RNA: 7SK RNA
RNA sequence: GGAUGUGAGGGUGAUCUGGCUGCGACAUUUGUCACCCCAUUGAUUGCCAGGGUUGAUUCGGCUGAUCUGGCUGGCUAGGCGGGUGUCCCCUUCCUCCCUCACCGAUCCAUGUGCGUCCCUCCCGAAGCUGCGCGCUCGCUCGGUUGAAGAGGACGACCUUCCCCGAUAGAGGAGGACCGACCUUCGGUCAAGGGUAUACGAGUAGCUGCGCUCCCCUGCUAGAACCUCCAAACAAGCUCUCAAGGUCCAUUUAAAUUAAGCAUUAUAAAAUGCUGGUUCUAUUUUAUUUUUAAAUACUGAGAGUUUCA
Numbered sequence: 001g002g003a004u005g006u007g008a009g010g011g012u013g014a015u016c017u018g019g020c021u022g023c024g025a026c027a028u029u030u031g032u033c034a035c036c037c038c039a040u041u042g043a044u045u046g047c048c049a050g051g052g053u054u055g056a057u058u059c060g061g062c063u064g065a066u067c068u069g070g071c072u073g074g075c076u077a078g079g080c081g082g083g084u085g086u087c088c089c090c091u092u093c094c095u096c097c098c099u100c101a102c103c104g105a106u107c108c109a110u111g112u113g114c115g116u117c118c119c120u121c122c123c124g125a126a127g128c129u130g131c132g133c134g135c136u137c138g139c140u141c142g143g144u145u146g147a148a149g150a151g152g153a154c155g156a157c158c159u160u161c162c163c164c165g166a167u168a169g170a171g172g173a174g175g176a177c178c179g180a181c182c183u184u185c186g187g188u189c190a191a192g193g194g195u196a197u198a199c200g201a202g203u204a205g206c207u208g209c210g211c212u213c214c215c216c217u218g219c220u221a222g223a224a225c226c227u228c229c230a231a232a233c234a235a236g237c238u239c240u241c242a243a244g245g246u247c248c249a250u251u252u253a254a255a256u257u258a259a260g261c262a263u264u265a266u267a268a269a270a271u272g273c274u275g276g277u278u279c280u281a282u283u284u285u286a287u288u289u290u291u292a293a294a295u296a297c298u299g300a301g302a303g304u305u306u307c308a
Base pairs, nucleotide, nucleotide: 001108002107003106005102006101007100008099009098010097011096013093014092018090019089024087025086026085027084028083029082030081031080032079033078035074036073037070038069039068042067043066044065045064046062047061048060116175117174118172119171120170121169122143123142124141125140127139128138144166145165146164151162152161153160205273206272212267217262218261219260227255234252235251236250298308299307300306